[Rfam]
RNA: PhotoRC-II RNA
RNA sequence: UUUCUAUGUGCACCCGCUUAACCGAGACCUAUGGGUGGUUAAAUUACGUCUCUAAUAUCCUGUAGUGAAGGGAUUACAGGAAAUAUAGUAUCGC
Numbered sequence: 001u002u003u004c005u006a007u008g009u010g011c012a013c014c015c016g017c018u019u020a021a022c023c024g025a026g027a028c029c030u031a032u033g034g035g036u037g038g039u040u041a042a043a044u045u046a047c048g049u050c051u052c053u054a055a056u057a058u059c060c061u062g063u064a065g066u067g068a069a070g071g072g073a074u075u076a077c078a079g080g081a082a083a084u085a086u087a088g089u090a091u092c093g094c
Base pairs, nucleotide, nucleotide: 011037012036013035014034015033024052025051026050027049028048059080060079061078062077063076064075065074